A member of the RNA family "Small nucleolar RNA U3" from Probosciger aterrimus, 210 nucleotides long.
RNA sequence: AAGACUAUACUUUCAGGGAUUAUUUCUGUAGUUGGUCACUAGAGGAGAGUGAUCGAACCUGAACGGCGUCACAAACCACGAGGAAGAGCGAGGUGCUGUCUCCUGAGCGCGAGGCGGGCGAGGGGCGCUGCUUGUGCAGGGGCAUCUCGCCAUCGAUGACCGUUCCUGCGCCUUGUGGUGUCGGGAGGGAGAGAGCACAGGCUGAGUGGU
Numbered sequence: 001a002a003g004a005c006u007a008u009a010c011u012u013u014c015a016g017g018g019a020u021u022a023u024u025u026c027u028g029u030a031g032u033u034g035g036u037c038a039c040u041a042g043a044g045g046a047g048a049g050u051g052a053u054c055g056a057a058c059c060u061g062a063a064c065g066g067c068g069u070c071a072c073a074a075a076c077c078a079c080g081a082g083g084a085a086g087a088g089c090g091a092g093g094u095g096c097u098g099u100c101u102c103c104u105g106a107g108c109g110c111g112a113g114g115c116g117g118g119c120g121a122g123g124g125g126c127g128c129u130g131c132u133u134g135u136g137c138a139g140g141g142g143c144a145u146c147u148c149g150c151c152a153u154c155g156a157u158g159a160c161c162g163u164u165c166c167u168g169c170g171c172c173u174u175g176u177g178g179u180g181u182c183g184g185g186a187g188g189g190a191g192a193g194a195g196c197a198c199a200g201g202c203u204g205a206g207u208g209g210u
Stems, first nucleotide, its partner, number of pairs: 002040002006035001009032003014028005049064002053062002075210005093198005099192006107163003117151004123145001125143002128139004166184002168181005

Clan: U3 clan.
The source organism's lineage runs through Eukaryota, Eumetazoa, Chordata, Dinosauria and Probosciger.
It is annotated as a C/D-box small nucleolar RNA.
On this family, see Zwieb, Nucleic Acids Res 1997: "The uRNA database".